[Rfam]
RNA sequence: GGAUAACACUUUUUGCUAUCCUCAGCCAAUAACGCAAUGACAUGUAUAAUAACUUUUCCACAUGUCAUUGUGUUAUUGGAUGAGGAUAGCAAAACAGUGCUAUCC
Numbered sequence: 001g002g003a004u005a006a007c008a009c010u011u012u013u014u015g016c017u018a019u020c021c022u023c024a025g026c027c028a029a030u031a032a033c034g035c036a037a038u039g040a041c042a043u044g045u046a047u048a049a050u051a052a053c054u055u056u057u058c059c060a061c062a063u064g065u066c067a068u069u070g071u072g073u074u075a076u077u078g079g080a081u082g083a084g085g086a087u088a089g090c091a092a093a094a095c096a097g098u099g100c101u102a103u104c105c
Base pairs, nucleotide, nucleotide: 002104003103004102005101011094012093013092014091015090016089017088018087019086021084022083023082024081026079027078028077029076030075031074032073033072034071035070036069037068038067039066040065041064042063043062044061045060048057049056
Source information:
MIR6274 microRNA precursor family: a 105-nucleotide RNA from Prunus armeniaca. Rfam 15.1 lists 342 matches to the family in 8 species. The organism belongs to Prunus, within Eukaryota. The match comes from Rfam's covariance-model search (90 bits).